Background
The record is a 72-nucleotide sequence, which matches "L13-Bacteroidia ribosomal protein leader" in Rfam. It is annotated as a cis-regulatory leader. For this family Rfam cites "Discovery of 20 novel ribosomal leader candidates in bacteria and archaea" (Eckert and Weinberg, BMC Microbiol, 2020). Pairs were carried over by alignment from the consensus structure, which is taken from published work.
[Rfam]
RNA sequence: GGACCCCUAAAGGGCCCUCUCGAAGCGUGUGAAUAGUCCGCAUCAUUGGCCUGAACGGACGGUUCGUGAAUC
Numbered sequence: 001g002g003a004c005c006c007c008u009a010a011a012g013g014g015c016c017c018u019c020u021c022g023a024a025g026c027g028u029g030u031g032a033a034u035a036g037u038c039c040g041c042a043u044c045a046u047u048g049g050c051c052u053g054a055a056c057g058g059a060c061g062g063u064u065c066g067u068g069a070a071u072c
Stems, first nucleotide, its partner, number of pairs: 001017002004014003030066005036060005043054003